Notes:
The family of this 88-nucleotide RNA sequence from Firmicutes bacterium CAG:129 is "Glycine riboswitch aptamer". Gene Ontology term of the family: glycine biosynthetic process. A search with the family's covariance model found it, with a score of 54 bits. NCBI's taxonomy places the organism under Bacteria, Bacillati, Bacillota. The base pairs follow the family's consensus structure.
RNA sequence: UGAUGGGUCACGGGAGAGACCGCGGAAUAUCUGCCGCGGCGCCGAAGGGGAACGCAGAAGCUCUCAGGCAAAAGGACCGGACUCGGAC
Numbered sequence: 001u002g003a004u005g006g007g008u009c010a011c012g013g014g015a016g017a018g019a020c021c022g023c024g025g026a027a028u029a030u031c032u033g034c035c036g037c038g039g040c041g042c043c044g045a046a047g048g049g050g051a052a053c054g055c056a057g058a059a060g061c062u063c064u065c066a067g068g069c070a071a072a073a074g075g076a077c078c079g080g081a082c083u084c085g086g087a088c
Stems, first nucleotide, its partner, number of pairs: 005084005011079003020039004041069003044065002048063003